[Rfam]
RNA: Lysine riboswitch aptamer
RNA sequence: CAUAGCGGGAGAGGUGCAACAUUCAGGUAUCUUAUCUUAGGGAGCUAGACCGUUUGAGGAUAAGUGAUGGGAGUGAUUGCCGAGGUGUGAAUUCACUAGAUAGGAAUGAACAUCGGCUGAGCAGGUUGAAUCCUAUUAGCUGUCGUUUAGAAUAAGAAUGGAUAGAAGCUGUUCUUCAUUUUAGAUGGAGUGCUCUUAAAUUU
Numbered sequence: 001c002a003u004a005g006c007g008g009g010a011g012a013g014g015u016g017c018a019a020c021a022u023u024c025a026g027g028u029a030u031c032u033u034a035u036c037u038u039a040g041g042g043a044g045c046u047a048g049a050c051c052g053u054u055u056g057a058g059g060a061u062a063a064g065u066g067a068u069g070g071g072a073g074u075g076a077u078u079g080c081c082g083a084g085g086u087g088u089g090a091a092u093u094c095a096c097u098a099g100a101u102a103g104g105a106a107u108g109a110a111c112a113u114c115g116g117c118u119g120a121g122c123a124g125g126u127u128g129a130a131u132c133c134u135a136u137u138a139g140c141u142g143u144c145g146u147u148u149a150g151a152a153u154a155a156g157a158a159u160g161g162a163u164a165g166a167a168g169c170u171g172u173u174c175u176u177c178a179u180u181u182u183a184g185a186u187g188g189a190g191u192g193c194u195c196u197u198a199a200a201u202u203u
Stems, first nucleotide, its partner, number of pairs: 007197005016080004023073001031064007084114005091107004115141004120137002123134003143188011